[Rfam]
RNA sequence: AAGGGUGGAUGAGGCAAGAUGUUGGCAUAGCUGAUUUGCAUUUAAAUCGUCAGCAAUGCUACAUAUGGCCAUGUCCCCCCUUU
Numbered sequence: 001a002a003g004g005g006u007g008g009a010u011g012a013g014g015c016a017a018g019a020u021g022u023u024g025g026c027a028u029a030g031c032u033g034a035u036u037u038g039c040a041u042u043u044a045a046a047u048c049g050u051c052a053g054c055a056a057u058g059c060u061a062c063a064u065a066u067g068g069c070c071a072u073g074u075c076c077c078c079c080c081u082u083u
Stems, first nucleotide, its partner, number of pairs: 005078001007076005013070003017066001019064003023061006030054002
RNA: mir-31 microRNA precursor family
Organism: Panagrolaimus superbus